[Rfam]
RNA sequence: UUCGGCUCGCUGCAUUUUCUGACGCAGCCCUUCGCAAGCCGCCAUCGCCGCACUCCUACUCCAGUCAGUACUGCGAUUCCUUCGCCUCCCCCCGGCGCGGU
Numbered sequence: 001u002u003c004g005g006c007u008c009g010c011u012g013c014a015u016u017u018u019c020u021g022a023c024g025c026a027g028c029c030c031u032u033c034g035c036a037a038g039c040c041g042c043c044a045u046c047g048c049c050g051c052a053c054u055c056c057u058a059c060u061c062c063a064g065u066c067a068g069u070a071c072u073g074c075g076a077u078u079c080c081u082u083c084g085c086c087u088c089c090c091c092c093c094g095g096c097g098c099g100g101u
Base pairs, nucleotide, nucleotide: 009028010027011026012025013024038101039100040099041098043097045095046094047093073085074084075083076082
The record is a 101-nucleotide RNA sequence from Pseudomonas kuykendallii, which matches "Pseudomon-Rho RNA" in Rfam. It scores 48 bits against the family's covariance model.